The family of this 87-nucleotide RNA from Aegilops tauschii is "MIR1120/MIR1122 microRNA precursor family".
Pairs were carried over by alignment from the consensus structure, which was predicted with RNAalifold.
For this family Rfam cites "Cloning and characterization of microRNAs from wheat (Triticum aestivum L.)" (Yao et al., Genome Biol, 2007).
Taxonomically the source falls in Aegilops tauschii (Eukaryota, Euphyllophyta, Magnoliopsida, Poaceae).

RNA sequence: CUACUCCCUCCGUCUCAUAAUAUAAAAAUGUUUCUGACACUAGUAUAGUGUCAGAAACGUUCUUAUAUUAUGGGACGGAGGGAGUAC
Numbered sequence: 001c002u003a004c005u006c007c008c009u010c011c012g013u014c015u016c017a018u019a020a021u022a023u024a025a026a027a028a029u030g031u032u033u034c035u036g037a038c039a040c041u042a043g044u045a046u047a048g049u050g051u052c053a054g055a056a057a058c059g060u061u062c063u064u065a066u067a068u069u070a071u072g073g074g075a076c077g078g079a080g081g082g083a084g085u086a087c
Base pairs, nucleotide, nucleotide: 003085004084005083007081008080009079010078011077013075014074015073016072017071019069020068021067022066023065024064025063027061028060029059030058031057032056033055034054035053036052037051038050039049040048041047